[Rfam]
RNA sequence: UGAACCGGUGGGGCUGGACAUCCCUUUAAAGGACUUGGGGAGAGAACCAACCCCUACCAACCCGACGUGUCACCCCAUCGGGUGACACGGUGGAAGUCGCGGGUCGCGGCGCGGUACGUUCGCCGCGACCCCAGACAGACGACGGCCCCCGCCGGGACUGGCAUCCCGCACGAGGGCCUGAUCAUCCAGGAAGCCAACACCUUCCCA
Numbered sequence: 001u002g003a004a005c006c007g008g009u010g011g012g013g014c015u016g017g018a019c020a021u022c023c024c025u026u027u028a029a030a031g032g033a034c035u036u037g038g039g040g041a042g043a044g045a046a047c048c049a050a051c052c053c054c055u056a057c058c059a060a061c062c063c064g065a066c067g068u069g070u071c072a073c074c075c076c077a078u079c080g081g082g083u084g085a086c087a088c089g090g091u092g093g094a095a096g097u098c099g100c101g102g103g104u105c106g107c108g109g110c111g112c113g114g115u116a117c118g119u120u121c122g123c124c125g126c127g128a129c130c131c132c133a134g135a136c137a138g139a140c141g142a143c144g145g146c147c148c149c150c151g152c153c154g155g156g157a158c159u160g161g162c163a164u165c166c167c168g169c170a171c172g173a174g175g176g177c178c179u180g181a182u183c184a185u186c187c188a189g190g191a192a193g194c195c196a197a198c199a200c201c202u203u204c205c206c207a
Stems, first nucleotide, its partner, number of pairs: 007186004016062002070085006089124005144178005150172002154167004189205005
RNA: Streptomyces sRNA 4677